RNA sequence: AUCUAUUAUAUGGGGGCAAUGACGCAGCUAGUGAGGUAAUAACCGAGGCGCAUCAAUUACUGGUUGAAAACUAUUUCCAAACCCCCCUCCUUGGCCUGGGUUCUGCUCAGGCCAUCGAGAGUUUCUGGAAGGGCUCCCU
Numbered sequence: 001a002u003c004u005a006u007u008a009u010a011u012g013g014g015g016g017c018a019a020u021g022a023c024g025c026a027g028c029u030a031g032u033g034a035g036g037u038a039a040u041a042a043c044c045g046a047g048g049c050g051c052a053u054c055a056a057u058u059a060c061u062g063g064u065u066g067a068a069a070a071c072u073a074u075u076u077c078c079a080a081a082c083c084c085c086c087c088u089c090c091u092u093g094g095c096c097u098g099g100g101u102u103c104u105g106c107u108c109a110g111g112c113c114a115u116c117g118a119g120a121g122u123u124u125c126u127g128g129a130a131g132g133g134c135u136c137c138c139u
Stems, first nucleotide, its partner, number of pairs: 021054002024051002027049003035044003087119003092114009